RNA sequence: AUCAAACGAAGAGGUCGCAACUAACAAAAGUACCUAGUGGAGUUUCUGCAAAAACGGUGAAGCUAGCGAAAGGGGCGGUUGCCGAAGCGUUAAUUAUUGCGGUAGUUAAUCGGCUGGGACGUAAUCUAAUAAAUUACGGACUGUCGCAAAUUUAAAUUUGCGGAGCGCUAUCGCCAAAA
Numbered sequence: 001a002u003c004a005a006a007c008g009a010a011g012a013g014g015u016c017g018c019a020a021c022u023a024a025c026a027a028a029a030g031u032a033c034c035u036a037g038u039g040g041a042g043u044u045u046c047u048g049c050a051a052a053a054a055c056g057g058u059g060a061a062g063c064u065a066g067c068g069a070a071a072g073g074g075g076c077g078g079u080u081g082c083c084g085a086a087g088c089g090u091u092a093a094u095u096a097u098u099g100c101g102g103u104a105g106u107u108a109a110u111c112g113g114c115u116g117g118g119a120c121g122u123a124a125u126c127u128a129a130u131a132a133a134u135u136a137c138g139g140a141c142u143g144u145c146g147c148a149a150a151u152u153u154a155a156a157u158u159u160g161c162g163g164a165g166c167g168c169u170a171u172c173g174c175c176a177a178a179a
Stems, first nucleotide, its partner, number of pairs: 007173003010169002017082006025074001034066005086115003089110007116142002120138006144163007